[Rfam]
Source information: MIR5272 microRNA precursor family: a 73-nucleotide sequence from Trifolium medium.
RNA sequence: UUAGAAGUGAAUUGAUUUAUGUUUGGAUAAUUAACGUAAAAGUGAUUCUUACUAAUUCAUGUUGUUUGGAUAG
Numbered sequence: 001u002u003a004g005a006a007g008u009g010a011a012u013u014g015a016u017u018u019a020u021g022u023u024u025g026g027a028u029a030a031u032u033a034a035c036g037u038a039a040a041a042g043u044g045a046u047u048c049u050u051a052c053u054a055a056u057u058c059a060u061g062u063u064g065u066u067u068g069g070a071u072a073g
Stems, first nucleotide, its partner, number of pairs: 011060002014057004021052002025048004030043003
Record summary: Pairs were carried over by alignment from the consensus structure, which was predicted with RNAalifold. It scores 66 bits against the family's covariance model.